[Rfam]
RNA sequence: ACUCCGCUGCCGGAAGUGGGCCGACGGUGCCGGGAUCCCGGCACCACCGAGUCCCCUGCCGGACGGUCCUUCGAACCGAGGCGUCAUG
Numbered sequence: 001a002c003u004c005c006g007c008u009g010c011c012g013g014a015a016g017u018g019g020g021c022c023g024a025c026g027g028u029g030c031c032g033g034g035a036u037c038c039c040g041g042c043a044c045c046a047c048c049g050a051g052u053c054c055c056c057u058g059c060c061g062g063a064c065g066g067u068c069c070u071u072c073g074a075a076c077c078g079a080g081g082c083g084u085c086a087u088g
Base pairs, nucleotide, nucleotide: 001084002083004081005080010062011061012060013059015057016056018054019053020052021051026047027044028043029042030041031040032039033038064078065077066076

Rfam assigns this 88-nucleotide RNA from Actinobacteria bacterium OK006 to the family "dauA ncRNA motif". Rfam's curators write: dauA ncRNA motif was reported as a strong cis regulatory motif candidate, with potential to be a cis regulatory riboswitch type, it have been identified in genomes of the genus Streptomyces. Pairs were carried over by alignment from the consensus structure, which is taken from published work. Rfam links the family to the GO term regulation of gene expression. Rfam classes the family as a cis-regulatory element. The sequence is in the family's curated seed alignment.